Rfam assigns this 76-nucleotide RNA from Alkalibacter rhizosphaerae to the family "c-di-GMP-I-GGC riboswitch aptamer". The base pairs follow the family's consensus structure, which is taken from published work.

[Rfam]
RNA sequence: AUUGAUAAUAGCAAACCUGUUGAAAAACAGGGGCGCAAAGCUACAGGGCCUUUCACAUGGCAGCCAGCUACCAAAG
Numbered sequence: 001a002u003u004g005a006u007a008a009u010a011g012c013a014a015a016c017c018u019g020u021u022g023a024a025a026a027a028c029a030g031g032g033g034c035g036c037a038a039a040g041c042u043a044c045a046g047g048g049c050c051u052u053u054c055a056c057a058u059g060g061c062a063g064c065c066a067g068c069u070a071c072c073a074a075a076g
Stems, first nucleotide, its partner, number of pairs: 003073002011036002016031006034063001039069004046065002048061003
Clan: c-di-GMP_I riboswitch clan.